RNA sequence: CUCUUAUCCAGAGAGGUGGAGGGACUGGCCCGAUGAAACCCGGCAACCAUUUGCGCCCUCACGUGCAAAAAGGUGCUAAUUCCUGCAGGUGUCGACCUGGCAGAUGAGAG
Numbered sequence: 001c002u003c004u005u006a007u008c009c010a011g012a013g014a015g016g017u018g019g020a021g022g023g024a025c026u027g028g029c030c031c032g033a034u035g036a037a038a039c040c041c042g043g044c045a046a047c048c049a050u051u052u053g054c055g056c057c058c059u060c061a062c063g064u065g066c067a068a069a070a071a072g073g074u075g076c077u078a079a080u081u082c083c084u085g086c087a088g089g090u091g092u093c094g095a096c097c098u099g100g101c102a103g104a105u106g107a108g109a110g
Stems, first nucleotide, its partner, number of pairs: 001110008013041001015040003021031003025085001027083002042077004047073002050069006081102001086099005
The family of this 110-nucleotide sequence from Novibacillus thermophilus is "SAM riboswitch aptamer (S box leader)".